Shown here is a 265-nucleotide part of an RNA from Methylobacter tundripaludum, a member of the family "Bacterial large subunit ribosomal RNA". Pairs were carried over by alignment from the consensus structure, which is taken from published work.
[Rfam]
RNA sequence: UGAGAUUUGAGGGAAGCUGCUCCUAGUACGAGAGGACCGGAGUGGACGAACCUCUGGUGUUCCGGUUGUCACGCCAGUGGCAUUGCCGGGUAGCUAUGUUCGGACAGGAUAACCGCUGAAAGCAUCUAAGCGGGAAGCCCCUCCCAAGAUGAGAUCUCACUGGGACUAUAAGUCCCCUGAAGGGCCGUCGGAGACUACGACGUUGAUAGGCACGGUGUGGAAGCGCAGUAAUGUGUGAAGCUAACGUGUACUAAUUGCCCGUGAG
Numbered sequence: 001u002g003a004g005a006u007u008u009g010a011g012g013g014a015a016g017c018u019g020c021u022c023c024u025a026g027u028a029c030g031a032g033a034g035g036a037c038c039g040g041a042g043u044g045g046a047c048g049a050a051c052c053u054c055u056g057g058u059g060u061u062c063c064g065g066u067u068g069u070c071a072c073g074c075c076a077g078u079g080g081c082a083u084u085g086c087c088g089g090g091u092a093g094c095u096a097u098g099u100u101c102g103g104a105c106a107g108g109a110u111a112a113c114c115g116c117u118g119a120a121a122g123c124a125u126c127u128a129a130g131c132g133g134g135a136a137g138c139c140c141c142u143c144c145c146a147a148g149a150u151g152a153g154a155u156c157u158c159a160c161u162g163g164g165a166c167u168a169u170a171a172g173u174c175c176c177c178u179g180a181a182g183g184g185c186c187g188u189c190g191g192a193g194a195c196u197a198c199g200a201c202g203u204u205g206a207u208a209g210g211c212a213c214g215g216u217g218u219g220g221a222a223g224c225g226c227a228g229u230a231a232u233g234u235g236u237g238a239a240g241c242u243a244a245c246g247u248g249u250a251c252u253a254a255u256u257g258c259c260c261g262u263g264a265g
Stems, first nucleotide, its partner, number of pairs: 001159008011145004017045007047102005055096003062089005067082006107139002113133005162177003179262001182260004186202005207253003210249005217241001223236005